[Rfam]
Nucleotides: 077
Stems, first nucleotide, its partner, number of pairs: 002077005
Number, partner (000 for none) and nucleotide at each position: 001000u002077g003076a004075u005074g006073a007000c008000a009000u010000u011000c012000u013000c014000c015000g016000g017000a018000a019000u020000c021000g022000c023000u024000g025000u026000a027000c028000u029000g030000c031000c032000u033000u034000g035000a036000u037000g038000a039000a040000a041000u042000a043000g044000u045000c046000c047000u048000u049000g050000a051000a052000a053000a054000u055000g056000c057000c058000a059000a060000c061000u062000g063000u064000g065000c066000a067000g068000c069000u070000a071000c072000c073006u074005u075004a076003u077002u